[Rfam]
RNA: epsC RNA
RNA sequence: UGGAGAGGCUUCCUAUCCGUUAUCAAUGGAGGCACUCGGCCAUGUUGUGGGAUAUUCUGCGAAAGAUAUCCUUAGACGCAUUCGUUGUCAAGAAUGUGGUGUGAGGGCGGGUUAGAUGCCCA
Numbered sequence: 001u002g003g004a005g006a007g008g009c010u011u012c013c014u015a016u017c018c019g020u021u022a023u024c025a026a027u028g029g030a031g032g033c034a035c036u037c038g039g040c041c042a043u044g045u046u047g048u049g050g051g052a053u054a055u056u057c058u059g060c061g062a063a064a065g066a067u068a069u070c071c072u073u074a075g076a077c078g079c080a081u082u083c084g085u086u087g088u089c090a091a092g093a094a095u096g097u098g099g100u101g102u103g104a105g106g107g108c109g110g111g112u113u114a115g116a117u118g119c120c121c122a
Stems, first nucleotide, its partner, number of pairs: 001019004008033006035105004039100008049072008075089004109121004